c-di-GMP-I riboswitch aptamer: an 86-nucleotide RNA sequence from Paenibacillus abyssi. The base pairs follow the family's consensus structure, which is taken from published work. Lineage of the source: Bacteria > Bacillota > Bacilli > Caryophanales > Paenibacillus.

RNA sequence: CUAUUGAAACGGCAAACCUACUGAAAAUUAGGGACGCAAAACUAUGGGCCUAAGGAAGAUCAUUCUAUGGCUGCCAAGUUACCAAA
Numbered sequence: 001c002u003a004u005u006g007a008a009a010c011g012g013c014a015a016a017c018c019u020a021c022u023g024a025a026a027a028u029u030a031g032g033g034a035c036g037c038a039a040a041a042c043u044a045u046g047g048g049c050c051u052a053a054g055g056a057a058g059a060u061c062a063u064u065c066u067a068u069g070g071c072u073g074c075c076a077a078g079u080u081a082c083c084a085a086a
Stems, first nucleotide, its partner, number of pairs: 012037002017032004022027001040080004045076003048071003055065003